[Rfam]
RNA sequence: UGUCUAAACUUACGCUUAGCGUAGGCAUGGCACAAUAUAAGAAACUCACGUGAAUGAAAAUGGUCUUCUGACCGGCACUUAUUCACGUGAGUCAAUAGCUCGAAAGGGUUAUCGGAUAGUUCCGAAAGGUUCUGUC
Numbered sequence: 001u002g003u004c005u006a007a008a009c010u011u012a013c014g015c016u017u018a019g020c021g022u023a024g025g026c027a028u029g030g031c032a033c034a035a036u037a038u039a040a041g042a043a044a045c046u047c048a049c050g051u052g053a054a055u056g057a058a059a060a061u062g063g064u065c066u067u068c069u070g071a072c073c074g075g076c077a078c079u080u081a082u083u084c085a086c087g088u089g090a091g092u093c094a095a096u097a098g099c100u101c102g103a104a105a106g107g108g109u110u111a112u113c114g115g116a117u118a119g120u121u122c123c124g125a126a127a128g129g130u131u132c133u134g135u136c
Stems, first nucleotide, its partner, number of pairs: 001032004009025007045091011061074004093114001095112006115136005